[Rfam]
RNA sequence: AGCGGCGUAGCUCAGUCGGUAGAGCAAGCGGCUCAUAAUCGCUGUGUCACCGGUUCAAGUCCGGUCGCCGCUA
Number, nucleotide and partner (000 for none) at each position: 001a072002g071003c070004g069005g068006c067007g066008u000009a000010g025011c024012u023013c022014a000015g000016u000017c000018g000019g000020u000021a000022g013023a012024g011025c010026a000027a043028g042029c041030g040031g039032c000033u000034c000035a000036u000037a000038a000039u031040c030041g029042c028043u027044g000045u000046g000047u000048c000049a065050c064051c063052g062053g061054u000055u000056c000057a000058a000059g000060u000061c053062c052063g051064g050065u049066c007067g006068c005069c004070g003071c002072u001073a000

Rfam assigns this 73-nucleotide sequence from Streptomyces mobaraensis to the family "tRNA". Lineage of the source: Bacteria > Bacillati > Actinomycetota > Actinomycetes > Streptomyces. Its Rfam clan is "tRNA clan". Pairs were carried over by alignment from the consensus structure, which is taken from published work.